[Rfam]
MIR2275 microRNA precursor family: a 90-nucleotide sequence from Rhododendron simsii. Its family is annotated with RISC complex and miRNA-mediated post-transcriptional gene silencing in the Gene Ontology. It scores 63 bits against the family's covariance model. The organism belongs to Rhododendron, within Eukaryota.
RNA sequence: GGGCUGUAUGUGAGAGUUGGAGGAAAUUAAUCCCGUUAGCACAAUUGCAUAGAACGGGUUUAAUUUCCUCCAAUAUCUCAUCUCCGGCAA
Numbered sequence: 001g002g003g004c005u006g007u008a009u010g011u012g013a014g015a016g017u018u019g020g021a022g023g024a025a026a027u028u029a030a031u032c033c034c035g036u037u038a039g040c041a042c043a044a045u046u047g048c049a050u051a052g053a054a055c056g057g058g059u060u061u062a063a064u065u066u067c068c069u070c071c072a073a074u075a076u077c078u079c080a081u082c083u084c085c086g087g088c089a090a
Stems, first nucleotide, its partner, number of pairs: 004087003008083001011080004016074006023067008032058004